[Rfam]
RNA: Fluoride riboswitch aptamer (crcB RNA motif)
Organism: Sphingobacterium sp. SGG-5
RNA sequence: GACAAAAAAGGAAAUGGUGUUCUUCCUUACCCAACCGCUCCAAAAAAGCUGAUGACGCCUGAUUAAUU
Numbered sequence: 001g002a003c004a005a006a007a008a009a010g011g012a013a014a015u016g017g018u019g020u021u022c023u024u025c026c027u028u029a030c031c032c033a034a035c036c037g038c039u040c041c042a043a044a045a046a047a048g049c050u051g052a053u054g055a056c057g058c059c060u061g062a063u064u065a066a067u068u
Stems, first nucleotide, its partner, number of pairs: 010026004016059006037049003